This 115-nucleotide sequence belongs to the Rfam family "FMN riboswitch aptamer (RFN element)".
RNA sequence: AAAUAUUUUCAGGGCGGGGUGAAAUUCCCCACCGGUGGUAAAGCCCACGAGCCGUAAGGCAUGAUUUGGUGAAAUUCCAAAGCCGACAGUAUAGUCUGGAUGAAAGAAAAUUCUU
Numbered sequence: 001a002a003a004u005a006u007u008u009u010c011a012g013g014g015c016g017g018g019g020u021g022a023a024a025u026u027c028c029c030c031a032c033c034g035g036u037g038g039u040a041a042a043g044c045c046c047a048c049g050a051g052c053c054g055u056a057a058g059g060c061a062u063g064a065u066u067u068g069g070u071g072a073a074a075u076u077c078c079a080a081a082g083c084c085g086a087c088a089g090u091a092u093a094g095u096c097u098g099g100a101u102g103a104a105a106g107a108a109a110a111u112u113c114u115u
Stems, first nucleotide, its partner, number of pairs: 005111006017029003031095002033085002035048004043083002053059001065081005087098003
Overview: The base pairs follow the family's consensus structure, which is taken from published work. Rfam's curators put it in the seed alignment.